[Rfam]
RNA: SAM riboswitch aptamer (S box leader)
Organism: Ruminococcaceae bacterium D16
Nucleotides: 100
Base pairs, nucleotide, nucleotide: 002099003098004097005096006095007094008093013041015040016039017038021031022030023029026075027074028073042068043067044066045065047064048063049061050060051059052058072092077089078088079087081085
Number, partner (000 for none) and nucleotide at each position: 001000a002099c003098c004097u005096u006095a007094u008093c009000a010000a011000g012000a013041g014000c015040g016039g017038u018000g019000g020000a021031g022030g023029g024000a025000a026075c027074g028073g029023c030022c031021c032000u033000a034000u035000g036000a037000a038017a039016c040015c041013c042068g043067g044066c045065a046000a047064c048063c049061u050060g051059c052058g053000u054000a055000a056000g057000a058052c059051g060050c061049a062000a063048g064047g065045u066044g067043c068042u069000a070000a071000a072092u073028c074027c075026g076000g077089c078088g079087g080000c081085a082000g083000u084000g085081u086000a087079u088078c089077g090000a091000a092072a093008g094007a095006u096005g097004a098003g099002g100000g